[Rfam]
Nucleotides: 126
Stems, first nucleotide, its partner, number of pairs: 028050005086111010
Number, partner (000 for none) and nucleotide at each position: 001000u002000a003000u004000a005000u006000a007000a008000g009000c010000a011000u012000u013000c014000g015000u016000a017000u018000u019000c020000u021000a022000a023000a024000g025000a026000c027000a028050g029049u030048c031047g032046g033000c034000a035000c036000a037000a038000a039000g040000g041000u042000a043000a044000g045000c046032c047031c048030g049029a050028c051000c052000g053000a054000g055000g056000a057000a058000a059000a060000g061000a062000a063000a064000g065000c066000a067000u068000c069000g070000u071000c072000a073000u074000a075000u076000c077000g078000a079000c080000u081000u082000u083000g084000u085000a086111u087110c088109u089108c090107u091106u092105u093104u094103g095102u096000c097000u098000u099000u100000g101000g102095a103094u104093a105092a106091a107090a108089g109088g110087g111086a112000u113000u114000u115000u116000u117000c118000u119000u120000u121000u122000a123000g124000a125000u126000u
The record is a 126-nucleotide RNA from Hominimerdicola alba, which matches "Ribosomal protein L10 leader" in Rfam. About the family: This family is a putative r-protein leader autoregulatory structure found in B. subtilis and other low-GC Gram-positive bacteria. It is located in the 5' untranslated regions of mRNAs encoding ribosomal proteins L10 and L12 (rplJ-rplL). A Rho-independent transcription terminator structure that is probably involved in regulation is included at the 3' end. On this family, see Zengel and Lindahl, Prog Nucleic Acid Res Mol Biol 1994: "Diverse mechanisms for regulating ribosomal protein synthesis in Escherichia coli".